U2 spliceosomal RNA: a 181-nucleotide sequence from Salvelinus namaycush. Its Rfam clan is "U2 clan". Its family is annotated with mRNA branch site recognition, pre-mRNA branch point binding and U2 snRNP in the Gene Ontology. The family's consensus secondary structure is taken from published work. By type it is a spliceosomal small nuclear RNA.

RNA sequence: AUAAAUUAUUUUUUCUAAAAAAAAAAAAUCUGUUCUUAUCAGUUUAAUAUCUGAUACGUCCCCCAUCGGGGGACUACAUAUUAAAUGGAUUUUUCGAACAGGGAGUCGGAAAUGGGGCUUGCUCCGUCCGCUCCACGCAUCGACCCGGUAUUGCAGUACCUCCGGGAACGGUGCAUUCUCC
Numbered sequence: 001a002u003a004a005a006u007u008a009u010u011u012u013u014u015c016u017a018a019a020a021a022a023a024a025a026a027a028a029u030c031u032g033u034u035c036u037u038a039u040c041a042g043u044u045u046a047a048u049a050u051c052u053g054a055u056a057c058g059u060c061c062c063c064c065a066u067c068g069g070g071g072g073a074c075u076a077c078a079u080a081u082u083a084a085a086u087g088g089a090u091u092u093u094u095c096g097a098a099c100a101g102g103g104a105g106u107c108g109g110a111a112a113u114g115g116g117g118c119u120u121g122c123u124c125c126g127u128c129c130g131c132u133c134c135a136c137g138c139a140u141c142g143a144c145c146c147g148g149u150a151u152u153g154c155a156g157u158a159c160c161u162c163c164g165g166g167a168a169c170g171g172u173g174c175a176u177u178c179u180c181c
Base pairs, nucleotide, nucleotide: 007024009022011018012017037056038055039054040053041052042051058074059073060072061071062070063069064068102134103133104132105131106130108128109127114125115124116123117122137174138173139172140171141170142169144166145165146164147163148162